RNA sequence: UCGAAGUUUAUCUACAAAUGAUAAGAUUUUGUCUUAGUAGUGUAUACGAAUCGUUGAAACAAGUAGCAAACCCCACUGUCUUGCUUUACAAGACAUGGGGUAUUGCUACUUU
Numbered sequence: 001u002c003g004a005a006g007u008u009u010a011u012c013u014a015c016a017a018a019u020g021a022u023a024a025g026a027u028u029u030u031g032u033c034u035u036a037g038u039a040g041u042g043u044a045u046a047c048g049a050a051u052c053g054u055u056g057a058a059a060c061a062a063g064u065a066g067c068a069a070a071c072c073c074c075a076c077u078g079u080c081u082u083g084c085u086u087u088a089c090a091a092g093a094c095a096u097g098g099g100g101u102a103u104u105g106c107u108a109c110u111u112u
Stems, first nucleotide, its partner, number of pairs: 008021004061111009072100001074098001078094005

This 112-nucleotide sequence from Musa balbisiana belongs to the Rfam family "Plastid-psbA-1 3UTR RNA".
Taxonomically the source falls in Musa (Eukaryota, Streptophytina, Euphyllophyta, commelinids).
Plastid psbA-1 is a non-coding RNA (ncRNA) present in plastids. It was identified in inverted repeat sequences in the 3 prime untranslate region (3UTR) of photosystem II quinone-binding protein (psbA).
Pairs were carried over by alignment from the consensus structure, which was predicted with LocARNA.
Rfam classes the family as a cis-regulatory element.
Its Rfam clan is "Plastid-psbA 3UTR RNA clan".